[Rfam]
RNA sequence: GUCAGCAGUGCUUUAGCAGCACGUAAAUAUUGGAGUUACGCUUUUUCCAAUGCCCCCAGUAUUAAUUGUGCUGCUGGAGUAAGGCUGAC
Numbered sequence: 001g002u003c004a005g006c007a008g009u010g011c012u013u014u015a016g017c018a019g020c021a022c023g024u025a026a027a028u029a030u031u032g033g034a035g036u037u038a039c040g041c042u043u044u045u046u047c048c049a050a051u052g053c054c055c056c057c058a059g060u061a062u063u064a065a066u067u068g069u070g071c072u073g074c075u076g077g078a079g080u081a082a083g084g085c086u087g088a089c
Base pairs, nucleotide, nucleotide: 001089002088003087004086005085006084013077014076015075016074017073018072019071020070021069022068023067024065026063027062028061029060030059031058032057033056035054

The record is an 89-nucleotide RNA sequence from Callorhinchus milii, which matches "mir-15 microRNA precursor family" in Rfam. The base pairs follow the family's consensus structure, which was predicted with RNAalifold. The literature on the family includes a 2001 paper in Science by Lagos-Quintana et al., "Identification of novel genes coding for small expressed RNAs". Rfam links the family to the GO terms RISC complex and miRNA-mediated post-transcriptional gene silencing. Taxonomically the source falls in Callorhinchus (Eukaryota, Eumetazoa, Gnathostomata, Chondrichthyes).